[Rfam]
RNA: mir-34 microRNA precursor family
RNA sequence: GUUUUGAUGGCAGUGGAGUUAGUGAUUGUAAACAGCACAGUACAAUCAGCUAAUUACACUGCCUACAAACC
Numbered sequence: 001g002u003u004u005u006g007a008u009g010g011c012a013g014u015g016g017a018g019u020u021a022g023u024g025a026u027u028g029u030a031a032a033c034a035g036c037a038c039a040g041u042a043c044a045a046u047c048a049g050c051u052a053a054u055u056a057c058a059c060u061g062c063c064u065a066c067a068a069a070c071c
Stems, first nucleotide, its partner, number of pairs: 003069004009063002012060004017055006023048008